RNA: Small nucleolar SNORD12/SNORD106
RNA sequence: ACUGUGGUUAAUGAUGCUGAUUUUUUUCCCCGUCAUAUCGACCAUGGUGAAUCAAAUGAAACUAAGCCAGUUUUGUCUGAAACCACAUU
Numbered sequence: 001a002c003u004g005u006g007g008u009u010a011a012u013g014a015u016g017c018u019g020a021u022u023u024u025u026u027u028c029c030c031c032g033u034c035a036u037a038u039c040g041a042c043c044a045u046g047g048u049g050a051a052u053c054a055a056a057u058g059a060a061a062c063u064a065a066g067c068c069a070g071u072u073u074u075g076u077c078u079g080a081a082a083c084c085a086c087a088u089u
Stems, first nucleotide, its partner, number of pairs: 001089001003087007